RNA: Fluoride riboswitch aptamer (crcB RNA motif)
Organism: Candidatus Vecturithrix granuli
RNA sequence: GCCUUUCGAGGGGAUGGAGUUCCCCUGACAAAUGCCCGGCAAGGGCUGAUGACUCCUGCGAUGCG
Numbered sequence: 001g002c003c004u005u006u007c008g009a010g011g012g013g014a015u016g017g018a019g020u021u022c023c024c025c026u027g028a029c030a031a032a033u034g035c036c037c038g039g040c041a042a043g044g045g046c047u048g049a050u051g052a053c054u055c056c057u058g059c060g061a062u063g064c065g
Stems, first nucleotide, its partner, number of pairs: 010025004016056006034046004